[Rfam]
RNA sequence: GAAGAAGAAGACGAGCUCCCUUCGAUCCAAUCCAGGAGAGGAAGUGGUAGGAUGCAGCUGCCGGUUCAUGGAUACCUCUGCAGUGCAUGUCGUAGGCUUGCACUUGCAUGGGUUUGCAUGACCCGGGAGAUGAACCCACCAUUGUCUUCCUCUUAUGCUUGGAUUGAAGGGAGCUCUACACCUCUCUCUC
Numbered sequence: 001g002a003a004g005a006a007g008a009a010g011a012c013g014a015g016c017u018c019c020c021u022u023c024g025a026u027c028c029a030a031u032c033c034a035g036g037a038g039a040g041g042a043a044g045u046g047g048u049a050g051g052a053u054g055c056a057g058c059u060g061c062c063g064g065u066u067c068a069u070g071g072a073u074a075c076c077u078c079u080g081c082a083g084u085g086c087a088u089g090u091c092g093u094a095g096g097c098u099u100g101c102a103c104u105u106g107c108a109u110g111g112g113u114u115u116g117c118a119u120g121a122c123c124c125g126g127g128a129g130a131u132g133a134a135c136c137c138a139c140c141a142u143u144g145u146c147u148u149c150c151u152c153u154u155a156u157g158c159u160u161g162g163a164u165u166g167a168a169g170g171g172a173g174c175u176c177u178a179c180a181c182c183u184c185u186c187u188c189u190c
Base pairs, nucleotide, nucleotide: 013176014175015174016173017172018171019170020169023166024165025164026163027162028161029160036153058129059128061126062125063124067120068119069118070117075112

MIR159 microRNA precursor family: a 190-nucleotide sequence from Oryza sativa. The literature on the family includes a 2006 paper in Genes Dev by Rajagopalan et al., "A diverse and evolutionarily fluid set of microRNAs in Arabidopsis thaliana". Rfam's curators put it in the seed alignment.